Purine riboswitch aptamer: a 102-nucleotide sequence from Mesobacillus campisalis. NCBI's taxonomy places the organism under Bacteria, Bacillati, Bacilli, Caryophanales, Mesobacillus. A search with the family's covariance model found it, with a score of 92 bits. The base pairs follow the family's consensus structure, which is taken from published work.

RNA sequence: AAUUAAAUGUAGAUUUUCCUUCAUAUAAUAAUGGGGAUAUGGCCCAUGAGUUUCUACCCAAUGACCGUAAAUUAUUGGACUAUGAGGGAAAGUGGUUUUUAU
Numbered sequence: 001a002a003u004u005a006a007a008u009g010u011a012g013a014u015u016u017u018c019c020u021u022c023a024u025a026u027a028a029u030a031a032u033g034g035g036g037a038u039a040u041g042g043c044c045c046a047u048g049a050g051u052u053u054c055u056a057c058c059c060a061a062u063g064a065c066c067g068u069a070a071a072u073u074a075u076u077g078g079a080c081u082a083u084g085a086g087g088g089a090a091a092g093u094g095g096u097u098u099u100u101a102u
Stems, first nucleotide, its partner, number of pairs: 018088008029049001031047005058078007